About this RNA: The record is an 86-nucleotide RNA from Solanum commersonii, which matches "MIR8024 microRNA precursor family" in Rfam. The family's consensus secondary structure was predicted with RNAalifold. The source organism's lineage runs through Eukaryota, Streptophytina, Tracheophyta, Solanales and Solanum.
RNA sequence: UUGAAGAAUUUAAAGACUUCGACUUGAAUACUUGAAGGAUUUAAAGACUUUGACUUGCAUACUUAGAGAAUUUGAAGACUUCAAUU
Numbered sequence: 001u002u003g004a005a006g007a008a009u010u011u012a013a014a015g016a017c018u019u020c021g022a023c024u025u026g027a028a029u030a031c032u033u034g035a036a037g038g039a040u041u042u043a044a045a046g047a048c049u050u051u052g053a054c055u056u057g058c059a060u061a062c063u064u065a066g067a068g069a070a071u072u073u074g075a076a077g078a079c080u081u082c083a084a085u086u
Base pairs, nucleotide, nucleotide: 001084002083003082004081005080006079009076010075011074012073013072014071017068018067019066021064025059026058028056032053033052034051035050036049037048